[Rfam]
RNA: FMN riboswitch aptamer (RFN element)
RNA sequence: AUAAAUCUUCGGGGCAGGGUGUAAAUCCCUACCGGCAGUAUAGCCUGCGAACUCUUGAAAAAGAGCCGAUACGGUGUGAUUCCGUAGCCGACAGUUAUAGUCUGGAUGAGAGAAGAAUAAU
Number, nucleotide and partner (000 for none) at each position: 001a000002u000003a000004a118005a000006u116007c115008u114009u113010c112011g000012g000013g000014g000015c000016a000017g029018g028019g027020u000021g000022u000023a000024a000025a000026u000027c019028c018029c017030u000031a101032c100033c090034g089035g048036c047037a046038g045039u000040a000041u000042a000043g088044c087045c038046u037047g036048c035049g000050a000051a000052c065053u064054c000055u000056u000057g000058a000059a000060a000061a000062a000063g000064a053065g052066c000067c000068g000069a000070u086071a085072c084073g083074g082075u000076g000077u000078g000079a000080u000081u000082c074083c073084g072085u071086a070087g044088c043089c034090g033091a000092c104093a103094g102095u000096u000097a000098u000099a000100g032101u031102c094103u093104g092105g000106a000107u000108g000109a000110g000111a000112g010113a009114a008115g007116a006117a000118u004119a000120a000121u000